[Rfam]
RNA: TPP riboswitch aptamer (THI element)
RNA sequence: AGAUUCCACUAGGGGUGCUUCGUGCUGAGAAAAGGUUCGCCUUUAACUCUUCAACCUGAUCUAGUUCAUACUAGCGUAGGGAAGUGGAAACGUAAAAAA
Number, nucleotide and partner (000 for none) at each position: 001a000002g000003a000004u000005u000006c087007c086008a085009c084010u083011a050012g049013g048014g047015g000016u000017g025018c024019u000020u000021c000022g000023u000024g018025c017026u000027g000028a000029g000030a000031a000032a043033a042034g041035g040036u000037u000038c000039g000040c035041c034042u033043u032044u000045a000046a000047c014048u013049c012050u011051u000052c000053a000054a000055c080056c079057u078058g077059a000060u000061c074062u073063a072064g071065u000066u000067c000068a000069u000070a000071c064072u063073a062074g061075c000076g000077u058078a057079g056080g055081g000082a000083a010084g009085u008086g007087g006088a000089a000090a000091c000092g000093u000094a000095a000096a000097a000098a000099a000